[Rfam]
RNA sequence: CCAUUCAAAUCGCUGAAUCCGUAAAGGAGAGGGGGACCCGAUUUUUUGGGGUGAAUCCUGUCCAACAGGUAGGGCGAACUCUCCACAAGCCCGAAUCCGUCAGCUAACCUCGUAAGCGUGAAGGAGAGGAGUG
Numbered sequence: 001c002c003a004u005u006c007a008a009a010u011c012g013c014u015g016a017a018u019c020c021g022u023a024a025a026g027g028a029g030a031g032g033g034g035g036a037c038c039c040g041a042u043u044u045u046u047u048g049g050g051g052u053g054a055a056u057c058c059u060g061u062c063c064a065a066c067a068g069g070u071a072g073g074g075c076g077a078a079c080u081c082u083c084c085a086c087a088a089g090c091c092c093g094a095a096u097c098c099g100u101c102a103g104c105u106a107a108c109c110u111c112g113u114a115a116g117c118g119u120g121a122a123g124g125a126g127a128g129g130a131g132u133g
Stems, first nucleotide, its partner, number of pairs: 011118004018028003029113001031111004039048002049098003057069004072092004
RNA: c-di-AMP riboswitch aptamer (ydaO/yuaA leader)